RNA sequence: CGAUAACUGAUUUCAUAUGGUGCUAGAACGCCGACUUCUAUCUAGCACCAACUGAAAUCAGCUUCCG
Numbered sequence: 001c002g003a004u005a006a007c008u009g010a011u012u013u014c015a016u017a018u019g020g021u022g023c024u025a026g027a028a029c030g031c032c033g034a035c036u037u038c039u040a041u042c043u044a045g046c047a048c049c050a051a052c053u054g055a056a057a058u059c060a061g062c063u064u065c066c067g
Base pairs, nucleotide, nucleotide: 001067002066007061008060009059010058011057012056013055014054015053018050019049020048021047022046024044025043026042027041